[Rfam]
About this RNA: The family of this 120-nucleotide sequence from Rouxiella badensis is "Ribosomal S15 leader". The literature on the family includes a 1996 paper in Biochimie by Benard et al., "Pseudoknot and translational control in the expression of the S15 ribosomal protein". Rfam classes the family as a cis-regulatory leader. Rfam describes the family as follows. The E. coli Ribosomal S15 gene 5' UTR can form two alternative structures. One that is a series of three hairpins, The other includes a pseudoknot. This structure causes translational regulation of the S15 protein. The alignment of this family contains only the final two hairpins which are conserved in other species, and also includes the complete region that forms the alternate structures. The source organism's lineage runs through Bacteria, Pseudomonadota, Gammaproteobacteria, Yersiniaceae and Rouxiella. It scores 111 bits against the family's covariance model. Its family is annotated with regulation of translation, ncRNA-mediated in the Gene Ontology.
RNA sequence: UGGGGUAGCUGAAUUAGAGAUCGGCACCCGUUUAAAUUAAUCUAUAAUAUUUUGGAGUUCAUUAUGUCUCUAAGCGUUGAAGCUAAAGCUCAAAUCGUUGCUGACUUCGGUCGUGGUGCA
Dot-bracket structure: .......(((((........))))).........................(((((((..........)))))))..............................................